[Rfam]
RNA sequence: CGAGGAAGACACGGGAGCCCAUGGGAACGCUGGGCUGAGAGUGCGGGCCGCCCCCCGCUGACCGUCAGACCUGAUCCGGGUAAUGCCGGCGAAGGAAGAAGGAUUGUUGUGGCA
Numbered sequence: 001c002g003a004g005g006a007a008g009a010c011a012c013g014g015g016a017g018c019c020c021a022u023g024g025g026a027a028c029g030c031u032g033g034g035c036u037g038a039g040a041g042u043g044c045g046g047g048c049c050g051c052c053c054c055c056c057g058c059u060g061a062c063c064g065u066c067a068g069a070c071c072u073g074a075u076c077c078g079g080g081u082a083a084u085g086c087c088g089g090c091g092a093a094g095g096a097a098g099a100a101g102g103a104u105u106g107u108u109g110u111g112g113c114a
Base pairs, nucleotide, nucleotide: 010098011065012064013063014062016059017035018034019033020032021031043058044057045056046055070095071094072093076089077088078087079086

Rfam assigns this 114-nucleotide sequence from Gordonia amarae to the family "TPP riboswitch aptamer (THI element)". A search with the family's covariance model found it, with a score of 56 bits. Lineage of the source: Bacteria > Bacillati > Actinomycetota > Actinomycetes > Gordonia amarae.